[Rfam]
RNA sequence: GGAGAAUCUGCUCUGUACAAUUCCAUCCGAUGAAACAUUGUACAGAGC
Numbered sequence: 001g002g003a004g005a006a007u008c009u010g011c012u013c014u015g016u017a018c019a020a021u022u023c024c025a026u027c028c029g030a031u032g033a034a035a036c037a038u039u040g041u042a043c044a045g046a047g048c
Base pairs, nucleotide, nucleotide: 011047012046013045014044015043017041018040019039
RNA: uup RNA